[Rfam]
RNA sequence: AUCAGAGUAGAAAAUAAAGCGUUAAGUGUCAAAAAAUGGAAUGUCGUUUUUGGACGAAGGGCUGUGGCUCGCGGUUUUAUUUUCGCAUUCGCUGAA
Numbered sequence: 001a002u003c004a005g006a007g008u009a010g011a012a013a014a015u016a017a018a019g020c021g022u023u024a025a026g027u028g029u030c031a032a033a034a035a036a037u038g039g040a041a042u043g044u045c046g047u048u049u050u051u052g053g054a055c056g057a058a059g060g061g062c063u064g065u066g067g068c069u070c071g072c073g074g075u076u077u078u079a080u081u082u083u084c085g086c087a088u089u090c091g092c093u094g095a096a
Stems, first nucleotide, its partner, number of pairs: 002095004010084010020073003026055002029053007039090005059070004